A member of the RNA family "SAM-III riboswitch aptamer (SMK box)" from Pisciglobus halotolerans, 89 nucleotides long.
RNA sequence: UAGGUUUGCAAAUGGAUUCCCGAUAGGAUUCACUUUCAAAGUGGAGAAGCCUUGUAACCGUAAAAAUUAAGGGGGAAUAGUAUAGAAUG
Numbered sequence: 001u002a003g004g005u006u007u008g009c010a011a012a013u014g015g016a017u018u019c020c021c022g023a024u025a026g027g028a029u030u031c032a033c034u035u036u037c038a039a040a041g042u043g044g045a046g047a048a049g050c051c052u053u054g055u056a057a058c059c060g061u062a063a064a065a066a067u068u069a070a071g072g073g074g075g076a077a078u079a080g081u082a083u084a085g086a087a088u089g
Stems, first nucleotide, its partner, number of pairs: 017077005025052003029045005058072002
Dot-bracket structure: ................(((((...(((.(((((.......)))))....))).....((...........)))))))............
On this family, see Fuchs et al., Proc Natl Acad Sci U S A 2007: "S-adenosylmethionine directly inhibits binding of 30S ribosomal subunits to the SMK box translational riboswitch RNA". The base pairs follow the family's consensus structure, which is taken from published work. Gene Ontology terms of the family: regulation of translational initiation and methionine adenosyltransferase activity.